RNA sequence: ACUCCGUGAUGAACAUACAACGACAAGCAUAUGACUGAACUCACAAGUGAUGUCAUCUAAGCACUGAGAAGU
Numbered sequence: 001a002c003u004c005c006g007u008g009a010u011g012a013a014c015a016u017a018c019a020a021c022g023a024c025a026a027g028c029a030u031a032u033g034a035c036u037g038a039a040c041u042c043a044c045a046a047g048u049g050a051u052g053u054c055a056u057c058u059a060a061g062c063a064c065u066g067a068g069a070a071g072u
Stems, first nucleotide, its partner, number of pairs: 001072002003069002

The record is a 72-nucleotide RNA sequence from Myotis davidii, which matches "Small nucleolar RNA SNORD27" in Rfam. The family has 8 seed sequences and 218 matches in Rfam 15.1.